Rfam assigns this 144-nucleotide RNA from Galemys pyrenaicus to the family "Small nucleolar RNA SNORA43". Rfam describes the family as follows. ACA43 is a member of the H/ACA class of snoRNA that guide the sites of modification of uridines to pseudouridines. It is annotated as an H/ACA-box small nucleolar RNA. Pairs were carried over by alignment from the consensus structure, which was predicted with RNAfold.
RNA sequence: GGCGCCCUGCAGAUGCCAGACCUGGGGCACCACAGAUGCAGCUUCUCAGCGGCACCUGUGGCAACAGGGCGGAGAGAAAGUGGCUAUUUCUACGCUCAGUGCUUAGAACAGUGAGCACUAAGAAUGGUUUGUAGCCAGACAUUC
Numbered sequence: 001g002g003c004g005c006c007c008u009g010c011a012g013a014u015g016c017c018a019g020a021c022c023u024g025g026g027g028c029a030c031c032a033c034a035g036a037u038g039c040a041g042c043u044u045c046u047c048a049g050c051g052g053c054a055c056c057u058g059u060g061g062c063a064a065c066a067g068g069g070c071g072g073a074g075a076g077a078a079a080g081u082g083g084c085u086a087u088u089u090c091u092a093c094g095c096u097c098a099g100u101g102c103u104u105a106g107a108a109c110a111g112u113g114a115g116c117a118c119u120a121a122g123a124a125u126g127g128u129u130u131g132u133a134g135c136c137a138g139a140c141a142u143u144c
Stems, first nucleotide, its partner, number of pairs: 003071007032059004082136003090127003095122002100117006

Rfam 15.1 lists 492 matches to the family in 142 species. Its family is annotated with RNA processing and nucleolus in the Gene Ontology.